[Rfam]
Shown here is a 108-nucleotide RNA sequence from Paenibacillaceae bacterium GAS479, a member of the family "TPP riboswitch aptamer (THI element)".
The organism belongs to Paenibacillaceae, within Bacteria.
Pairs were carried over by alignment from the consensus structure, which is taken from published work.
RNA sequence: ACCGCAUAGCUGGGGAGCUGGCGCACGCUGGCUGAGAGGGGAGAAGCAUCCCGACCCAUACACCUGAUCUGGAUAAUGCCAGCGUAGGAACCGUAUGCAGCCGCAUCA
Dot-bracket structure: .....(((..((((..(((((......)))))......(((.(...).)))...))))....((((..((((......))))..)))).....)))............
Overview
It scores 57 bits against the family's covariance model.